[Rfam]
Nucleotides: 336
Stems, first nucleotide, its partner, number of pairs: 001015005028046004050065004083121003088116008137186005149175002152173004206222005225238005252269007271300005311326005
Number, partner (000 for none) and nucleotide at each position: 001015a002014g003013c004012g005011c006000u007000g008000c009000c010000g011005g012004c013003g014002c015001u016000a017000u018000a019000u020000a021000a022000g023000g024000g025000a026000a027000a028046g029045c030044g031043a032000u033000u034000g035000u036000c037000a038000u039000a040000g041000u042000u043031u044030c045029g046028c047000c048000u049000a050065c051064g052063g053062u054000u055000u056000u057000g058000a059000a060000u061000a062053g063052c064051c065050g066000a067000c068000g069000c070000u071000a072000u073000a074000g075000a076000a077000u078000a079000u080000u081000c082000a083121u084120g085119g086000u087000u088116u089115a090114u091113g092112u093111u094110u095109c096000g097000u098000a099000c100000c101000u102000a103000u104000u105000u106000u107000a108000a109095g110094a111093a112092g113091c114090a115089u116088a117000u118000u119085c120084c121083a122000u123000a124000a125000a126000u127000g128000g129000u130000a131000g132000a133000a134000g135000a136000a137186g138185u139184u140183a141182c142000g143000a144000c145000g146000c147000c148000a149175g150174u151000a152173c153172c154171g155170c156000c157000g158000g159000c160000g161000a162000u163000u164000g165000a166000a167000a168000g169000a170155g171154c172153g173152g174150a175149c176000g177000a178000a179000u180000g181000a182141g183140u184139a185138a186137c187000a188000a189000a190000g191000g192000g193000u194000a195000a196000g197000g198000u199000u200000a201000a202000a203000u204000c205000g206222c207221u208220a209219g210218a211000c212000u213000u214000a215000g216000a217000u218210u219209c220208u221207a222206g223000u224000a225238a226237c227236g228235g229234c230000g231000c232000a233000a234229g235228u236227c237226g238225u239000g240000g241000g242000a243000u244000u245000a246000c247000a248000u249000a250000g251000g252269u253268a254267c255266a256265u257264c258263g259000g260000u261000a262000a263258c264257g265256a266255u267254g268253u269252a270000a271300u272299u273298a274297g275296u276000a277000g278000g279000g280000c281000a282000a283000a284000u285000u286000g287000g288000a289000u290000u291000u292000a293000g294000a295000c296275g297274c298273u299272a300271a301000a302000u303000a304000a305000u306000a307000u308000g309000u310000a311326c312325g313324g314323u315322a316000g317000u318000a319000g320000a321000a322315u323314a324313c325312c326311g327000g328000c329000u330000a331000u332000a333000a334000a335000u336000a
throat-1 RNA: a 336-nucleotide RNA sequence. The sequence is in the family's curated seed alignment.